[Rfam]
RNA sequence: GUGGCGUAAUGAAGGCCUGCACUGCAAACAGCCCGCUGUGUGUGCAGACUGGAUACUCGUGCCAC
Numbered sequence: 001g002u003g004g005c006g007u008a009a010u011g012a013a014g015g016c017c018u019g020c021a022c023u024g025c026a027a028a029c030a031g032c033c034c035g036c037u038g039u040g041u042g043u044g045c046a047g048a049c050u051g052g053a054u055a056c057u058c059g060u061g062c063c064a065c
Stems, first nucleotide, its partner, number of pairs: 001065005014050002017047006029038003
RNA: Selenocysteine insertion sequence 1
Organism: Electrophorus electricus